[Rfam]
RNA: mir-3492 microRNA precursor family
RNA sequence: GGCCUUAUGUAUACGAGCCGAGAUUUCAUCAGACACCAGGCCGUCAGAACUGACGAGGCUCACGAAAUAAGUAAAGCG
Numbered sequence: 001g002g003c004c005u006u007a008u009g010u011a012u013a014c015g016a017g018c019c020g021a022g023a024u025u026u027c028a029u030c031a032g033a034c035a036c037c038a039g040g041c042c043g044u045c046a047g048a049a050c051u052g053a054c055g056a057g058g059c060u061c062a063c064g065a066a067a068u069a070a071g072u073a074a075a076g077c078g
Base pairs, nucleotide, nucleotide: 002077003076005074006073008071010069011068012067017063020061021060022059024058025057026056027055029053030052